The record is a 214-nucleotide RNA, which matches "Clostridiales-3 RNA" in Rfam.
RNA sequence: AUGAGAGUCGAAGGAUCGAGAGAUGAAGAUGGAGCAGAUAAUGAUGUUUGGCAUGGCAGAAUGAUAAUUACGCAUGAAGGAGAUUAUAGGAUCUCCUGGUCCUCGAAAUGGCAGCAGAGGAGAUGGUUGAUAAAUUCAGCCUCGUGCUCACGAAUGUGACAUGAUUGUAAUUCCUUAGUACACAAGGACGAUGAAUUAAAAAUGUGUACCUACA
Numbered sequence: 001a002u003g004a005g006a007g008u009c010g011a012a013g014g015a016u017c018g019a020g021a022g023a024u025g026a027a028g029a030u031g032g033a034g035c036a037g038a039u040a041a042u043g044a045u046g047u048u049u050g051g052c053a054u055g056g057c058a059g060a061a062u063g064a065u066a067a068u069u070a071c072g073c074a075u076g077a078a079g080g081a082g083a084u085u086a087u088a089g090g091a092u093c094u095c096c097u098g099g100u101c102c103u104c105g106a107a108a109u110g111g112c113a114g115c116a117g118a119g120g121a122g123a124u125g126g127u128u129g130a131u132a133a134a135u136u137c138a139g140c141c142u143c144g145u146g147c148u149c150a151c152g153a154a155u156g157u158g159a160c161a162u163g164a165u166u167g168u169a170a171u172u173c174c175u176u177a178g179u180a181c182a183c184a185a186g187g188a189c190g191a192u193g194a195a196u197u198a199a200a201a202a203u204g205u206g207u208a209c210c211u212a213c214a
Stems, first nucleotide, its partner, number of pairs: 007030003015024003073146003078097007100121005122143002126140005149158003178209007